[Rfam]
Nucleotides: 113
Base pairs, nucleotide, nucleotide: 001023002022003021004020005019006018007017008016009015010014028042031039032038033037062113063112064111065110066109067108068107069106070105071101079098080097081096082095083094084093085092
Number, partner (000 for none) and nucleotide at each position: 001023a002022a003021c004020c005019a006018c007017u008016c009015g010014c011000u012000a013000g014010g015009c016008g017007a018006g019005u020004g021003g022002u023001u024000c025000a026000a027000a028042a029000a030000a031039g032038c033037c034000u035000a036000g037033g038032g039031c040000g041000a042028u043000g044000a045000g046000g047000c048000g049000g050000a051000a052000a053000a054000g055000a056000a057000a058000a059000c060000u061000c062113c063112c064111u065110u066109u067108g068107c069106u070105a071101u072000a073000a074000u075000u076000g077000a078000a079098g080097u081096g082095c083094g084093g085092u086000c087000u088000g089000c090000c091000a092085a093084c094083u095082g096081c097080a098079c099000g100000a101071a102000a103000g104000a105070u106069a107068g108067c109066a110065a111064a112063g113062g
STnc490 Hfq binding RNA: a 113-nucleotide sequence from Pseudoflavonifractor capillosus. The match comes from Rfam's covariance-model search (73 bits). NCBI's taxonomy places the organism under Bacteria, Eubacteriales, Oscillospiraceae, Pseudoflavonifractor, Pseudoflavonifractor capillosus.